[Rfam]
RNA: Bacterial RNase P class A
Organism: Leifsonia xyli
RNA sequence: UGGGUCGGCAAGACGGUCGCGUCGGUCUGCGUCAGCGGGCCGCCGAGGAACGUCCGGGCUCCGCAGAGCAGGGCGGUGGGUAACACCCACCCGGGGCAACCCGCGAGAAAGUGCAACAGAGAGCAGACCGCCACGGGCUCCGGCCCGCGGUAAGGGUGAAACGGUGGUGUAAGAGACCACCAGCGGCCGGGGCGACCCGGCCGGCUGGGUAAACCUCGCCCGGAGCAAGGUCAGACAGGGAACGAUGGGGUGGCUCGCUCCGUUCCCGGGUAGACCGCUAGAGGGCGGCGGCGACGUCGUCCCGAGAGAGAUGGCCGUCCACGGCGCGCAAGCGCCGUGACAGAACCCGGCGUAUCAGCCGGCCCAUUCC
Numbered sequence: 001u002g003g004g005u006c007g008g009c010a011a012g013a014c015g016g017u018c019g020c021g022u023c024g025g026u027c028u029g030c031g032u033c034a035g036c037g038g039g040c041c042g043c044c045g046a047g048g049a050a051c052g053u054c055c056g057g058g059c060u061c062c063g064c065a066g067a068g069c070a071g072g073g074c075g076g077u078g079g080g081u082a083a084c085a086c087c088c089a090c091c092c093g094g095g096g097c098a099a100c101c102c103g104c105g106a107g108a109a110a111g112u113g114c115a116a117c118a119g120a121g122a123g124c125a126g127a128c129c130g131c132c133a134c135g136g137g138c139u140c141c142g143g144c145c146c147g148c149g150g151u152a153a154g155g156g157u158g159a160a161a162c163g164g165u166g167g168u169g170u171a172a173g174a175g176a177c178c179a180c181c182a183g184c185g186g187c188c189g190g191g192g193c194g195a196c197c198c199g200g201c202c203g204g205c206u207g208g209g210u211a212a213a214c215c216u217c218g219c220c221c222g223g224a225g226c227a228a229g230g231u232c233a234g235a236c237a238g239g240g241a242a243c244g245a246u247g248g249g250g251u252g253g254c255u256c257g258c259u260c261c262g263u264u265c266c267c268g269g270g271u272a273g274a275c276c277g278c279u280a281g282a283g284g285g286c287g288g289c290g291g292c293g294a295c296g297u298c299g300u301c302c303c304g305a306g307a308g309a310g311a312u313g314g315c316c317g318u319c320c321a322c323g324g325c326g327c328g329c330a331a332g333c334g335c336c337g338u339g340a341c342a343g344a345a346c347c348c349g350g351c352g353u354a355u356c357a358g359c360c361g362g363c364c365c366a367u368u369c370c
Stems, first nucleotide, its partner, number of pairs: 001366009011355001012319007020045002023042006050353003054350005059225004066256004071221005076090005091105001092103004106216002111214002113210002128155002130151003134147005163181006183205001184203008229276004238267006247261005283302008